RNA: Fluoride riboswitch aptamer (crcB RNA motif)
Organism: Humibacillus sp. DSM 29435
RNA sequence: CGCAAAGCAGGUGAUGGAUCCCACCUGAGCGACAGCGCCCAAACCGCCCUACCGGCUGAUGGUUCCUACCGAAAC
Numbered sequence: 001c002g003c004a005a006a007g008c009a010g011g012u013g014a015u016g017g018a019u020c021c022c023a024c025c026u027g028a029g030c031g032a033c034a035g036c037g038c039c040c041a042a043a044c045c046g047c048c049c050u051a052c053c054g055g056c057u058g059a060u061g062g063u064u065c066c067u068a069c070c071g072a073a074a075c
Base pairs, nucleotide, nucleotide: 010025011024012023013022016066017065018064020062021061046056047055048054